[Rfam]
RNA sequence: UGGGCGGCCCGGGCCCCUCUGACGAUCAUGGUGAUCGUGAUGUCGGACCGCAUCG
Numbered sequence: 001u002g003g004g005c006g007g008c009c010c011g012g013g014c015c016c017c018u019c020u021g022a023c024g025a026u027c028a029u030g031g032u033g034a035u036c037g038u039g040a041u042g043u044c045g046g047a048c049c050g051c052a053u054c055g
Base pairs, nucleotide, nucleotide: 006049007048009046010045011044012043022038023037024036025035026034027033028032